Bacterial small subunit ribosomal RNA: a 559-nucleotide part of an RNA from Luoshenia tenuis. For this family Rfam cites "Crystal structure of the ribosome at 5.5 A resolution" (Yusupov et al., Science, 2001). Rfam links the family to the GO terms structural constituent of ribosome and ribosome.

RNA sequence: AAAUUGAAGAGUUUGAUCCUGGCUCAGGACGAACGCUGGCGGCGUGCUUAACACAUGCAAGUCGAACGGGAGAGGAUGAGGAAAUGCUUCGGCAUGGAGACAUCUGAUCUAGUGGCGGACGGGUGAGUAACGCGUGAGCAACCUGUCCUGCACAGGGGGAUAACACUGAGAAAUCAGUGCUAAUACCGCAUGAGACCACAGUAUCACAUGGUACAGGGGUCAAAGGAGAAAUCCGGUGCAGGGUGGGCUCGCGUCCCAUUAGCUAGUUGGUAGGGUAAAGGCCUACCAAGGCGACGAUGGGUAGCCGGACUGAGAGGUUGGCCGGCCACACUGGGACUGAGACACGGCCCAGACUCCUACGGGAGGCAGCAGUGGGGAAUAUUGGGCAAUGGGCGAAAGCCUGACCCAGCAACGCCGCGUGAAGGAAGAAGGUCUUUGGAUUGUAAACUUUUGUCCUAUGGGAAGAAGGAAGUGACGGUACCAUGGGAGGAAGCCCCGGCUAACUACGUGCCAGCAGCCGCGGUAAUACGUAGGGGGCGAGCGUUGUCCGGAAUUACUG
Numbered sequence: 001a002a003a004u005u006g007a008a009g010a011g012u013u014u015g016a017u018c019c020u021g022g023c024u025c026a027g028g029a030c031g032a033a034c035g036c037u038g039g040c041g042g043c044g045u046g047c048u049u050a051a052c053a054c055a056u057g058c059a060a061g062u063c064g065a066a067c068g069g070g071a072g073a074g075g076a077u078g079a080g081g082a083a084a085u086g087c088u089u090c091g092g093c094a095u096g097g098a099g100a101c102a103u104c105u106g107a108u109c110u111a112g113u114g115g116c117g118g119a120c121g122g123g124u125g126a127g128u129a130a131c132g133c134g135u136g137a138g139c140a141a142c143c144u145g146u147c148c149u150g151c152a153c154a155g156g157g158g159g160a161u162a163a164c165a166c167u168g169a170g171a172a173a174u175c176a177g178u179g180c181u182a183a184u185a186c187c188g189c190a191u192g193a194g195a196c197c198a199c200a201g202u203a204u205c206a207c208a209u210g211g212u213a214c215a216g217g218g219g220u221c222a223a224a225g226g227a228g229a230a231a232u233c234c235g236g237u238g239c240a241g242g243g244u245g246g247g248c249u250c251g252c253g254u255c256c257c258a259u260u261a262g263c264u265a266g267u268u269g270g271u272a273g274g275g276u277a278a279a280g281g282c283c284u285a286c287c288a289a290g291g292c293g294a295c296g297a298u299g300g301g302u303a304g305c306c307g308g309a310c311u312g313a314g315a316g317g318u319u320g321g322c323c324g325g326c327c328a329c330a331c332u333g334g335g336a337c338u339g340a341g342a343c344a345c346g347g348c349c350c351a352g353a354c355u356c357c358u359a360c361g362g363g364a365g366g367c368a369g370c371a372g373u374g375g376g377g378a379a380u381a382u383u384g385g386g387c388a389a390u391g392g393g394c395g396a397a398a399g400c401c402u403g404a405c406c407c408a409g410c411a412a413c414g415c416c417g418c419g420u421g422a423a424g425g426a427a428g429a430a431g432g433u434c435u436u437u438g439g440a441u442u443g444u445a446a447a448c449u450u451u452u453g454u455c456c457u458a459u460g461g462g463a464a465g466a467a468g469g470a471a472g473u474g475a476c477g478g479u480a481c482c483a484u485g486g487g488a489g490g491a492a493g494c495c496c497c498g499g500c501u502a503a504c505u506a507c508g509u510g511c512c513a514g515c516a517g518c519c520g521c522g523g524u525a526a527u528a529c530g531u532a533g534g535g536g537g538c539g540a541g542c543g544u545u546g547u548c549c550g551g552a553a554u555u556a557c558u559g
Base pairs, nucleotide, nucleotide: 009025010024011023012022013021027549028548029547030546032545033544034543035542036541037540039418040417041416042415043414044413045411046410047376052374053373054372056371057370058369061116062115063114066113067112069109070108123329124328125327132254133253134252135251136250137249138248139247142246143245147242148241149240150239151238152237153236155189157187158186164179165178166177167176168175169174195220196219197218199216201214203212204211205210225234226233227232255301256300257299262292263291264290267289268288269287270286271285272284273283274282304326305325306324307323308319309318310317311316331352332351333350334349335348354365355364356363357362382408384407385406386405390403391402392401393400394399421451422450423449424448431442432441433440434439455490456486457485458484459483460482461481465476493538494537495536496535497534504533505532506531507530508529514521515520
Notes
Taxonomically the source falls in Luoshenia (Bacteria, Bacillati, Christensenellales, Christensenellaceae). A search with the family's covariance model found it, with a score of 1584 bits.